[Rfam]
Nucleotides: 104
Base pairs, nucleotide, nucleotide: 001104002103003102004101005100006099
Number, partner (000 for none) and nucleotide at each position: 001104g002103a003102u004101c005100g006099c007000a008000g009000u010000g011000a012000u013000g014000a015000c016000u017000c018000c019000a020000u021000g022000a023000a024000a025000u026000u027000c028000a029000a030000g031000c032000u033000c034000a035000a036000c037000a038000g039000a040000c041000c042000g043000g044000a045000a046000u047000g048000c049000a050000g051000g052000u053000u054000u055000c056000u057000c058000u059000u060000u061000c062000u063000a064000g065000a066000g067000a068000a069000a070000u071000u072000u073000g074000g075000g076000u077000g078000u079000c080000g081000a082000c083000a084000a085000c086000c087000c088000c089000g090000c091000u092000g093000a094000a095000c096000u097000g098000a099006g100005c101004g102003a103002u104001u
The record is a 104-nucleotide RNA sequence from Camellia sinensis, which matches "Small nucleolar RNA Z107/R87" in Rfam.
The literature on the family includes a 2003 paper in Nucleic Acids Res by Chen et al., "The high diversity of snoRNAs in plants: identification and comparative study of 120 snoRNA genes from Oryza sativa".
The family's consensus secondary structure was predicted with RNAfold.
Gene Ontology terms of the family: nucleolus and RNA processing.
A search with the family's covariance model found it, with a score of 92 bits.
The source organism's lineage runs through Eukaryota, Viridiplantae, Streptophytina, Magnoliopsida and Camellia sinensis.
Rfam 15.1 lists 783 matches to the family in 221 species.